Rfam assigns this 303-nucleotide RNA sequence from Flagellimonas alvinocaridis to the family "Bacterial RNase P class A". The family's RNA type in Rfam is ribozyme. Rfam links the family to the GO terms tRNA processing, ribonuclease P activity and dimeric ribonuclease P complex.

RNA sequence: CCAGCAGGCCACCUUACCGCUGCGGUUUUGGGUAACCAAGGCUGAAGAGGAAAGUCCGGACACCAUAGUGCGGCAUAGCGGGUAACGCCCGUCCGCCGAAAGGCGAGGACCAGUGCAACAGAAAGCAAGUACAGUUCGGCUGUAGUGAAAUCAGGUAAACUCUAUGCGGUGAAACGCCAUGUAAACCAAUGCUUGAGGGCUGCACGCCCAAGUUGGAGGGUAGGCGGUUAGAGCUUUUGGGCAACCAAAAGUCUAGAUAAAUGGUAAGGCUCGACAGAAUCCGGCUUAUGGCCUGCUUUUUUA
Numbered sequence: 001c002c003a004g005c006a007g008g009c010c011a012c013c014u015u016a017c018c019g020c021u022g023c024g025g026u027u028u029u030g031g032g033u034a035a036c037c038a039a040g041g042c043u044g045a046a047g048a049g050g051a052a053a054g055u056c057c058g059g060a061c062a063c064c065a066u067a068g069u070g071c072g073g074c075a076u077a078g079c080g081g082g083u084a085a086c087g088c089c090c091g092u093c094c095g096c097c098g099a100a101a102g103g104c105g106a107g108g109a110c111c112a113g114u115g116c117a118a119c120a121g122a123a124a125g126c127a128a129g130u131a132c133a134g135u136u137c138g139g140c141u142g143u144a145g146u147g148a149a150a151u152c153a154g155g156u157a158a159a160c161u162c163u164a165u166g167c168g169g170u171g172a173a174a175c176g177c178c179a180u181g182u183a184a185a186c187c188a189a190u191g192c193u194u195g196a197g198g199g200c201u202g203c204a205c206g207c208c209c210a211a212g213u214u215g216g217a218g219g220g221u222a223g224g225c226g227g228u229u230a231g232a233g234c235u236u237u238u239g240g241g242c243a244a245c246c247a248a249a250a251g252u253c254u255a256g257a258u259a260a261a262u263g264g265u266a267a268g269g270c271u272c273g274a275c276a277g278a279a280u281c282c283g284g285c286u287u288a289u290g291g292c293c294u295g296c297u298u299u300u301u302u303a
Base pairs, nucleotide, nucleotide: 003297004296005295006294007293008292009291010290011289012269013268014267015266016265017264018263020047021046023044024043025042026041027040028039029038030037052287053286054285056284057283058282059281060280061171062170063169064168068205069204070203071202073167074166075165076164077163078092079091080090081089082088093107094105095104096103097102108162109161113160114159115156116155130144131143132142133141134140135139175226176225177224178223186216187215188214189213190212197209198208199207200206233252234251235250236249237248238247239246240245

The source organism's lineage runs through Bacteria, Pseudomonadati, Bacteroidota, Flavobacteriaceae and Flagellimonas.